[Rfam]
RNA sequence: CCAUGGCUCGAUAGAUAAUUUGAUACGCCAAUGAUUUUUUGUGAGUUCUUGAAAGUAAAGAAGUAAUAAAAUAUUUCUUGUUAUAUCAAGAGGUUUGUUAUUGCUUCUUU
Numbered sequence: 001c002c003a004u005g006g007c008u009c010g011a012u013a014g015a016u017a018a019u020u021u022g023a024u025a026c027g028c029c030a031a032u033g034a035u036u037u038u039u040u041g042u043g044a045g046u047u048c049u050u051g052a053a054a055g056u057a058a059a060g061a062a063g064u065a066a067u068a069a070a071a072u073a074u075u076u077c078u079u080g081u082u083a084u085a086u087c088a089a090g091a092g093g094u095u096u097g098u099u100a101u102u103g104c105u106u107c108u109u110u
Stems, first nucleotide, its partner, number of pairs: 001014001003012002057110013071096001073094001075092005
This 110-nucleotide RNA sequence from Pyrus ussuriensis x Pyrus communis belongs to the Rfam family "Plastid-psbA-1 3UTR RNA". The family's RNA type in Rfam is cis-regulatory element. Pairs were carried over by alignment from the consensus structure, which was predicted with LocARNA. For this family Rfam cites "Retrograde signaling in plants: A critical review focusing on the GUN pathway and beyond" (Richter et al., Plant Commun, 2023). The organism belongs to Pyrus, within Eukaryota. It scores 63 bits against the family's covariance model.